[Rfam]
RNA sequence: CCAGCCGGCCGGGCGGCCGCACCAGCGAGAGCCGAAAGGUUGCGGGUGAGGAAAGUCCGGGCUCCAUGGAGACACGGUGCCGGCUAACGGCCGGCGGGGGUGACCCCAGGGAAAGUGCCACAGAAAGCAGACCGCCGCGGAUUUUUCCGCGGUAAGGGUGAAAGGGUGGGGUAAGAGCCCACCGCGCGCCUGGCAACAGGAGCGGCACGGCAAACCCCACCGGGAGCAAGACCGAAUAGGGGCGGUUGAGGGGCAACCCUCAGGGCUGUUUCCGGCCCACCGUCCGGGUAGGUCGCGUGAGGCCGGCGGCAACGCCGGUCCAAGACGAAUGGCCGCCACGUUCUCCGCGCCGCAAGGCGUCGAGGGCCAUACAGAACCCGGCUUACAGGCCGGCUGGCAGU
Dot-bracket structure: ((((((((((((((((((.((((.((((...........)))).))))....[[[.[[[[[((((.....[[..((((((((((.....)))))(((((....)))).)((...(((((............((((((((((....))))))))..)).......((((((.......))))))((((.((((....)))).))).)..)))..)))))))))))))...((((......((((((.................(((((..]]..))))).)))))).....))))......((((((((....))))))))..........))))))).......................................]]]]]]]].).))))))))))....

The record is a 401-nucleotide sequence from Mesorhizobium sp. YM1C-6-2, which matches "Bacterial RNase P class A" in Rfam. The organism belongs to Mesorhizobium, within Bacteria.